This 388-nucleotide RNA from Mesobacillus subterraneus belongs to the Rfam family "Bacterial RNase P class B".
RNA sequence: ACGUUCGGGUAAUCGCUGCAGUUCUGCUGCAGAGGAAAGUCCAUGCUCGCACAGGCUGAGAUGCUUGUAGUGUUCGUGCCUGGCCAAUUCAUAAGCCAGGGCAGUUGGGCUCACGCUCGGCUGACGGCAGGGAAAAUGCCUAAGUCGGCAACGAUAUGGCAUGAAUACCUAUAAAAGUGCCACAGUGACGGAGCCUUCCAAGAAAUUGGAAGGGUGGAACGAGGUAAACCCCGCGAGCGAGAAACCCAAACAAUGGUAGGGGCACCUUCCUGAAGGAACUGAACGAAGGGAAGGACAGAUGAUCUUCAUCUGUAGAUAGAUGAUUACCACCGGAGUACGAGACUAUUGGUCAUUUGCAGUACGAUGGCACAAAACAUGGCUUACAGAA
Numbered sequence: 001a002c003g004u005u006c007g008g009g010u011a012a013u014c015g016c017u018g019c020a021g022u023u024c025u026g027c028u029g030c031a032g033a034g035g036a037a038a039g040u041c042c043a044u045g046c047u048c049g050c051a052c053a054g055g056c057u058g059a060g061a062u063g064c065u066u067g068u069a070g071u072g073u074u075c076g077u078g079c080c081u082g083g084c085c086a087a088u089u090c091a092u093a094a095g096c097c098a099g100g101g102c103a104g105u106u107g108g109g110c111u112c113a114c115g116c117u118c119g120g121c122u123g124a125c126g127g128c129a130g131g132g133a134a135a136a137u138g139c140c141u142a143a144g145u146c147g148g149c150a151a152c153g154a155u156a157u158g159g160c161a162u163g164a165a166u167a168c169c170u171a172u173a174a175a176a177g178u179g180c181c182a183c184a185g186u187g188a189c190g191g192a193g194c195c196u197u198c199c200a201a202g203a204a205a206u207u208g209g210a211a212g213g214g215u216g217g218a219a220c221g222a223g224g225u226a227a228a229c230c231c232c233g234c235g236a237g238c239g240a241g242a243a244a245c246c247c248a249a250a251c252a253a254u255g256g257u258a259g260g261g262g263c264a265c266c267u268u269c270c271u272g273a274a275g276g277a278a279c280u281g282a283a284c285g286a287a288g289g290g291a292a293g294g295a296c297a298g299a300u301g302a303u304c305u306u307c308a309u310c311u312g313u314a315g316a317u318a319g320a321u322g323a324u325u326a327c328c329a330c331c332g333g334a335g336u337a338c339g340a341g342a343c344u345a346u347u348g349g350u351c352a353u354u355u356g357c358a359g360u361a362c363g364a365u366g367g368c369a370c371a372a373a374a375c376a377u378g379g380c381u382u383a384c385a386g387a388a
Base pairs, nucleotide, nucleotide: 004388005387006386007384008328009327010326011325012324013323014322016032017031018030019029020028021027037382038381039380041379042378043377044376045375046241047240048239049238050237051068052067053066054065055064056063074236075235076234077233078232079100080099081098082097083096084095101125102123103122104121105120106119107118108117109116110115126231127230129170130169131168137161138160139159140158144155145154146153177229178228179225180224181223194213195212196211197210198209199208200207201206245261246260247259265294266293267292268291269290270289271288295313296312297311298310299309300308301307302306330367331366332365335362336361337360338359
It scores 327 bits against the family's covariance model. The family's RNA type in Rfam is ribozyme.